[Rfam]
RNA sequence: AUUAAAAUUUUUAAGAAGAAAUAAUCAACUGCAUGCCACAGCAAUGUGGAGAGACUUUGACAGCUCAGGUCAGCACAGUAUCUGCAUCUGCCACUUGCCUUUACUAUAGAC
Numbered sequence: 001a002u003u004a005a006a007a008u009u010u011u012u013a014a015g016a017a018g019a020a021a022u023a024a025u026c027a028a029c030u031g032c033a034u035g036c037c038a039c040a041g042c043a044a045u046g047u048g049g050a051g052a053g054a055c056u057u058u059g060a061c062a063g064c065u066c067a068g069g070u071c072a073g074c075a076c077a078g079u080a081u082c083u084g085c086a087u088c089u090g091c092c093a094c095u096u097g098c099c100u101u102u103a104c105u106a107u108a109g110a111c
Stems, first nucleotide, its partner, number of pairs: 002014005048104001050102004063091002066084004